Rfam assigns this 125-nucleotide sequence from Nicotiana tabacum to the family "U11 spliceosomal RNA". It scores 63 bits against the family's covariance model. Gene Ontology terms of the family: pre-mRNA 5'-splice site binding, U11 snRNP and mRNA 5'-splice site recognition. By type it is a spliceosomal small nuclear RNA.

Nucleotides: 125
Base pairs, nucleotide, nucleotide: 008078009077011075014028015027016026017025029049030048031047032046033045034044035043036042050073051072052071053070054069055068056067098125101123102122104120105119108118109117110116
Number, partner (000 for none) and nucleotide at each position: 001000a002000a003000a004000a005000a006000g007000g008078g009077u010000a011075g012000g013000u014028u015027g016026g017025c018000u019000a020000a021000a022000u023000a024000u025017g026016c027015c028014a029049c030048a031047c032046u033045c034044g035043c036042c037000c038000g039000a040000g041000a042036g043035g044034u045033g046032a047031g048030u049029g050073c051072u052071g053070u054069a055068u056067g057000g058000a059000u060000a061000u062000c063000a064000a065000g066000a067056c068055a069054u070053a071052u072051g073050g074000g075011c076000g077009a078008c079000a080000u081000a082000a083000u084000u085000u086000g087000u088000g089000g090000a091000a092000u093000u094000u095000u096000c097000a098125u099000a100000g101123g102122g103000u104120u105119g106000g107000c108118u109117c110116g111000c112000u113000a114000g115000c116110c117109g118108a119105c120104a121000c122102u123101c124000c125098a